[Rfam]
RNA: Group II catalytic intron D1-D4-2
Organism: Arenibacter sp. NBRC 103722
RNA sequence: GGUGGAACCGACCCACCGGUGUUGUCCUGCAGGGGAGAGCAUCAAACCACCAUAAGGUGCUUUGGUAAAGAGCCAAGGUAUUGAGCGUUAUGGAAAAGGCUAUGCCAAGAGCUAGUCAGGU
Number, nucleotide and partner (000 for none) at each position: 001g017002g016003u015004g014005g013006a000007a000008c000009c000010g000011a000012c000013c005014c004015a003016c002017c001018g043019g042020u041021g040022u039023u038024g000025u036026c035027c034028u033029g000030c000031a000032g000033g028034g027035g026036a025037g000038a023039g022040c021041a020042u019043c018044a000045a000046a000047c000048c120049a000050c093051c092052a091053u090054a089055a088056g082057g081058u000059g079060c078061u077062u000063u075064g074065g073066u072067a000068a000069a000070g000071a000072g066073c065074c064075a063076a000077g061078g060079u059080a000081u057082u056083g000084a000085g000086c000087g000088u055089u054090a053091u052092g051093g050094a000095a000096a000097a000098g117099g116100c115101u114102a113103u000104g000105c000106c000107a000108a000109g000110a000111g000112c000113u102114a101115g100116u099117c098118a000119g000120g048121u000